Glycine riboswitch aptamer: a 98-nucleotide RNA from Stakelama marina.
It scores 55 bits against the family's covariance model.
NCBI's taxonomy places the organism under Bacteria, Pseudomonadota, Alphaproteobacteria, Sphingomonadales, Stakelama.
Rfam's curators write: This family represents the bacterial glycine riboswitch.
[Rfam]
RNA sequence: UAGGCGCGCGCGGGAGAGUGUAUCGGAAUUUGCGUUCCGGACCGCCGAAGGAGCAACCGCCCCGGAAUCUCUCAGGCUUAUGGGACCGCGCGAGCUGU
Number, nucleotide and partner (000 for none) at each position: 001u000002a000003g000004g000005c000006g000007c092008g091009c090010g089011c088012g087013g086014g000015a000016g000017a000018g000019u000020g042021u041022a000023u039024c000025g000026g000027a000028a000029u000030u000031u000032g000033c000034g000035u000036u000037c000038c000039g023040g000041a021042c020043c000044g077045c076046c075047g073048a072049a000050g000051g071052a070053g069054c000055a000056a000057c065058c064059g000060c000061c000062c000063c000064g058065g057066a000067a000068u000069c053070u052071c051072u048073c047074a000075g046076g045077c044078u000079u000080a000081u000082g000083g000084g000085a000086c013087c012088g011089c010090g009091c008092g007093a000094g000095c000096u000097g000098u000